[Rfam]
RNA sequence: CAUCGCGAUGCUCUUCAACACUGGAAAGAUCGUGAUGAGGAUAUUUUCAAAGCGCCAGCCGAAGGAGUUGGUUUUGUAUUCGCCGCAACUCGUGGCCAGACUGUAAAAGGCCGGGAGCUUCCCCAAGCGGGUUCAACUCGGCCCCAACAGGGUGGGAUGGGUUGAAAACGAGAUACUAGACUGGCUUCAGAAAAAGGUUGGAUGGUCGAGAAAUACCUGACCGACACUCCUGAACGGGAGUAUGGGUGGCUAGAGGUGCACAUUUC
Number, nucleotide and partner (000 for none) at each position: 001c037002a036003u035004c034005g033006c032007g031008a030009u029010g000011c000012u027013c000014u025015u024016c023017a022018a000019c000020a000021c000022u017023g016024g015025a014026a000027a012028g000029a009030u008031c007032g006033u005034g004035a003036u002037g001038a000039g000040g000041a000042u000043a000044u000045u000046u000047u000048c000049a000050a000051a000052g000053c000054g000055c201056c200057a199058g198059c197060c196061g000062a000063a000064g188065g187066a186067g185068u184069u183070g182071g181072u180073u179074u178075u000076g000077u175078a174079u173080u172081c170082g169083c000084c000085g000086c164087a163088a162089c161090u000091c159092g158093u157094g000095g000096c154097c000098a000099g000100a000101c150102u149103g148104u000105a000106a000107a000108a000109g143110g142111c141112c000113g138114g137115g000116a000117g000118c000119u000120u000121c131122c130123c129124c000125a000126a000127g000128c000129g123130g122131g121132u000133u000134c000135a000136a000137c114138u113139c000140g000141g111142c110143c109144c000145c000146a000147a000148c103149a102150g101151g000152g000153u000154g096155g000156g000157a093158u092159g091160g000161g089162u088163u087164g086165a000166a000167a000168a000169c082170g081171a000172g080173a079174u078175a077176c000177u000178a074179g073180a072181c071182u070183g069184g068185c067186u066187u065188c064189a000190g000191a000192a000193a000194a000195a000196g060197g059198u058199u057200g056201g055202a000203u252204g251205g250206u249207c248208g247209a000210g000211a000212a000213a000214u000215a000216c000217c000218u000219g000220a000221c245222c244223g243224a000225c000226a000227c240228u239229c238230c237231u236232g000233a000234a000235c000236g231237g230238g229239a228240g227241u000242a000243u223244g222245g221246g000247u208248g207249g206250c205251u204252a203253g265254a264255g263256g000257u000258g000259c000260a000261c000262a000263u255264u254265u253266c000

Shown here is a 266-nucleotide RNA from Rhodobacteraceae bacterium R_SAG10, a member of the family "Ruegeria trans44 sRNA". For this family Rfam cites "Experimental Identification of Small Non-Coding RNAs in the Model Marine Bacterium Ruegeria pomeroyi DSS-3" (Rivers et al., Front Microbiol, 2016). Taxonomically the source falls in Paracoccaceae (Bacteria, Pseudomonadati, Pseudomonadota, Rhodobacterales).